This 134-nucleotide sequence from Kryptolebias marmoratus belongs to the Rfam family "Small nucleolar RNA SNORA22". Rfam classes the family as an H/ACA-box small nucleolar RNA. About the family: ACA22 is a member of the H/ACA class of snoRNA that guide the sites of modification of uridines to pseudouridines.
RNA sequence: GUGCACAGUGAACACUCAGGGAAGCCACCGUGGCUCUCCCUGGUCUUGUGUCUGUGCAACAUUGACUCUGAUCUUUGCCUCUGCGUUAGGAGAGUUUAAUCUCUCCUACAUGUAUUCAACUGAUCAGGACAACA
Numbered sequence: 001g002u003g004c005a006c007a008g009u010g011a012a013c014a015c016u017c018a019g020g021g022a023a024g025c026c027a028c029c030g031u032g033g034c035u036c037u038c039c040c041u042g043g044u045c046u047u048g049u050g051u052c053u054g055u056g057c058a059a060c061a062u063u064g065a066c067u068c069u070g071a072u073c074u075u076u077g078c079c080u081c082u083g084c085g086u087u088a089g090g091a092g093a094g095u096u097u098a099a100u101c102u103c104u105c106c107u108a109c110a111u112g113u114a115u116u117c118a119a120c121u122g123a124u125c126a127g128g129a130c131a132a133c134a
Stems, first nucleotide, its partner, number of pairs: 003057006010051001013048002016043005022037001024034003059074001061072004082118002084112003088107007
About this RNA: Gene Ontology terms of the family: RNA processing and nucleolus.